[Rfam]
RNA: Potassium channel RNA editing signal
RNA sequence: GUGGGAUAUGGCGAUGUGGCGCCUAAGACCUAUCCAGGAAUGUUCGUGGGCGCCCUGUGUGCGUUGGCCGGUGUGCUGACCAUCGCAUUACCCGUUCCCGUCAUCGUUAGCAAC
Numbered sequence: 001g002u003g004g005g006a007u008a009u010g011g012c013g014a015u016g017u018g019g020c021g022c023c024u025a026a027g028a029c030c031u032a033u034c035c036a037g038g039a040a041u042g043u044u045c046g047u048g049g050g051c052g053c054c055c056u057g058u059g060u061g062c063g064u065u066g067g068c069c070g071g072u073g074u075g076c077u078g079a080c081c082a083u084c085g086c087a088u089u090a091c092c093c094g095u096u097c098c099c100g101u102c103a104u105c106g107u108u109a110g111c112a113a114c
Stems, first nucleotide, its partner, number of pairs: 001114002004111001008107004013102004018097002021095002037077002040074001050062002